The record is a 142-nucleotide RNA from Panthera tigris, which matches "small Cajal body-specific RNA 17" in Rfam. On this family, see Darzacq et al., EMBO J 2002: "Cajal body-specific small nuclear RNAs: a novel class of 2'-O-methylation and pseudouridylation guide RNAs". About the family: scaRNAs are a specific class of small nuclear RNAs which localise to the Cajal bodies and guide the modification of RNA polymerase II transcribed spliceosomal RNAs U1, U2, U4, U5 and U12. The complete human U12-22/U4-8 scaRNA is composed of two tandem C/D box domains (termed U12-22 and U4-8).
RNA sequence: GCCCCGAGUCCCCGAGAUAGCCCCCAAUGAGUUCACGGUAUCUUCCUUAUAUGAUCAGGCCCCAUUGCUGGCAUCGCCACUAACCCAGAGCCUGAGAAGAUUAUGAAAAUGUGUCUGGCAAAGUGGGGCUGGGGACCGGGAC
Numbered sequence: 001g002c003c004c005c006g007a008g009u010c011c012c013c014g015a016g017a018u019a020g021c022c023c024c025c026a027a028u029g030a031g032u033u034c035a036c037g038g039u040a041u042c043u044u045c046c047u048u049a050u051a052u053g054a055u056c057a058g059g060c061c062c063c064a065u066u067g068c069u070g071g072c073a074u075c076g077c078c079a080c081u082a083a084c085c086c087a088g089a090g091c092c093u094g095a096g097a098a099g100a101u102u103a104u105g106a107a108a109a110u111g112u113g114u115c116u117g118g119c120a121a122a123g124u125g126g127g128g129c130u131g132g133g134g135a136c137c138g139g140g141a142c
Base pairs, nucleotide, nucleotide: 001142003140005139008136009135010134011133012132013131020129021128022127023126024125055095056094057093058092059091060090062088067084069082070081071080
By type it is a small Cajal body RNA.